[Rfam]
RNA sequence: GCGCCAUAGUGUCUGGGCAAAGUGGGCCGUUUUUAUGGUACUAUCUUAAUCCACUAUCGGCAAAACUAAUUGCUUUGUAUAAUCCCUGCUCACCUAGUGGUGUGACAGAUUCAUGACAUCGCUACAAAU
Numbered sequence: 001g002c003g004c005c006a007u008a009g010u011g012u013c014u015g016g017g018c019a020a021a022g023u024g025g026g027c028c029g030u031u032u033u034u035a036u037g038g039u040a041c042u043a044u045c046u047u048a049a050u051c052c053a054c055u056a057u058c059g060g061c062a063a064a065a066c067u068a069a070u071u072g073c074u075u076u077g078u079a080u081a082a083u084c085c086c087u088g089c090u091c092a093c094c095u096a097g098u099g100g101u102g103u104g105a106c107a108g109a110u111u112c113a114u115g116a117c118a119u120c121g122c123u124a125c126a127a128a129u
Base pairs, nucleotide, nucleotide: 003061004060005059007056008055009054010053015052016051017050020047021046022045023043024042025041026039027038028037029036030035075121077119078118080116086108087107088106091102092101093100094099
Caenorhabditis snoRNA ceN84: a 129-nucleotide sequence from Caenorhabditis bovis.